[Rfam]
RNA sequence: GGUGUGCGAUAGACCUACCUCCGCGUGGUGCACCCUGGGCAACGUAUAUUCAUACGGCAAAAAUGUGGUG
Numbered sequence: 001g002g003u004g005u006g007c008g009a010u011a012g013a014c015c016u017a018c019c020u021c022c023g024c025g026u027g028g029u030g031c032a033c034c035c036u037g038g039g040c041a042a043c044g045u046a047u048a049u050u051c052a053u054a055c056g057g058c059a060a061a062a063a064u065g066u067g068g069u070g
Stems, first nucleotide, its partner, number of pairs: 001036002004033004017029003043056005
Annotation
The family of this 70-nucleotide RNA sequence from Rodentolepis nana is "HDV ribozyme from F. prausnitzii". The literature on the family includes a 2009 paper in Science by Webb et al., "Widespread occurrence of self-cleaving ribozymes". Rfam links the family to the GO term catalytic activity.